Background
Shown here is a 77-nucleotide RNA, a member of the family "mir-259 microRNA precursor family". A search with the family's covariance model found it, with a score of 66 bits. The family has 3 seed sequences and 8 matches in Rfam 15.1. For this family Rfam cites "Patterns of flanking sequence conservation and a characteristic upstream motif for microRNA gene identification" (Ohler et al., RNA, 2004).

RNA sequence: GCCCGAGUAAAUCUCAUCCUAAUCUGGUCGCAACGAUUCUAGAAUUGCUACCGAUUUGGCUUGAGAUUUCCUCGUGU
Numbered sequence: 001g002c003c004c005g006a007g008u009a010a011a012u013c014u015c016a017u018c019c020u021a022a023u024c025u026g027g028u029c030g031c032a033a034c035g036a037u038u039c040u041a042g043a044a045u046u047g048c049u050a051c052c053g054a055u056u057u058g059g060c061u062u063g064a065g066a067u068u069u070c071c072u073c074g075u076g077u
Stems, first nucleotide, its partner, number of pairs: 004074004010068007018059002021056004026052003030048002